[Rfam]
RNA sequence: UAUUGGGUGUUGAAGAAGAAGAGUAGCUUUUGUUGAUGCUGCAGAGAGCUGGUGGUCGCUGUGAACCAGUGCAAAAAUAAAAGUGAAUGGCCUUCUGAGCCUCCAAACCGAACUCCAGCUGGAAAGUAGGCUUUGGCGAAGAUCUCAUCGUUACAAGAGAUAGGUAUUGAAGCAUUUUGGCGUAGAUACCGAAAAGUGAAUUGCAUUUUGGCAAUUAAUAAAGGUGGUACCACGGGUUCCUCGUCCUUUGG
Numbered sequence: 001u002a003u004u005g006g007g008u009g010u011u012g013a014a015g016a017a018g019a020a021g022a023g024u025a026g027c028u029u030u031u032g033u034u035g036a037u038g039c040u041g042c043a044g045a046g047a048g049c050u051g052g053u054g055g056u057c058g059c060u061g062u063g064a065a066c067c068a069g070u071g072c073a074a075a076a077a078u079a080a081a082a083g084u085g086a087a088u089g090g091c092c093u094u095c096u097g098a099g100c101c102u103c104c105a106a107a108c109c110g111a112a113c114u115c116c117a118g119c120u121g122g123a124a125a126g127u128a129g130g131c132u133u134u135g136g137c138g139a140a141g142a143u144c145u146c147a148u149c150g151u152u153a154c155a156a157g158a159g160a161u162a163g164g165u166a167u168u169g170a171a172g173c174a175u176u177u178u179g180g181c182g183u184a185g186a187u188a189c190c191g192a193a194a195a196g197u198g199a200a201u202u203g204c205a206u207u208u209u210g211g212c213a214a215u216u217a218a219u220a221a222a223g224g225u226g227g228u229a230c231c232a233c234g235g236g237u238u239c240c241u242c243g244u245c246c247u248u249u250g251g
Base pairs, nucleotide, nucleotide: 007100008099015095016094017093018092026084027083028082029081030080031079037073038072039071048070049069050068051067052066053065103135105133106132108130109129137150138149139148199216200215201214202213203212204211221248222247223246224245232244233243234242235241236240
The record is a 251-nucleotide RNA sequence from Salinibacillus xinjiangensis, which matches "T-box leader" in Rfam.
The organism belongs to Salinibacillus, within Bacteria.
Rfam 15.1 lists 19,395 matches to the family in 1,923 species.
A search with the family's covariance model found it, with a score of 136 bits.